[Rfam]
RNA sequence: AAACACUGAUGAAAAUAGCCAAAUCUGAGUAUCAGAAGACCUUCCAGCUGAGAAACAUAUCUGUAAAAUAACUUAAA
Numbered sequence: 001a002a003a004c005a006c007u008g009a010u011g012a013a014a015a016u017a018g019c020c021a022a023a024u025c026u027g028a029g030u031a032u033c034a035g036a037a038g039a040c041c042u043u044c045c046a047g048c049u050g051a052g053a054a055a056c057a058u059a060u061c062u063g064u065a066a067a068a069u070a071a072c073u074u075a076a077a
Stems, first nucleotide, its partner, number of pairs: 029056002032053002037049002040047001
The family of this 77-nucleotide RNA sequence from Fukomys damarensis is "Small nucleolar RNA U2-19". The source organism's lineage runs through Eukaryota, Euteleostomi, Dipnotetrapodomorpha, Bathyergidae and Fukomys. The family's RNA type in Rfam is C/D-box small nucleolar RNA. Rfam 15.1 lists 1,147 matches to the family in 531 species.